[Rfam]
RNA sequence: CAGAUAAAGGGUGAUCGAGCUCGCCGUACAAUUGCCUUUGGCUGAUGGCUCCUACAGGAAU
Numbered sequence: 001c002a003g004a005u006a007a008a009g010g011g012u013g014a015u016c017g018a019g020c021u022c023g024c025c026g027u028a029c030a031a032u033u034g035c036c037u038u039u040g041g042c043u044g045a046u047g048g049c050u051c052c053u054a055c056a057g058g059a060a061u
Base pairs, nucleotide, nucleotide: 010025011024012023013022017051018050019049020048021047034042035041036040
Shown here is a 61-nucleotide RNA from Thermanaeromonas sp. C210, a member of the family "Fluoride riboswitch aptamer (crcB RNA motif)". The organism belongs to Thermanaeromonas, within Bacteria.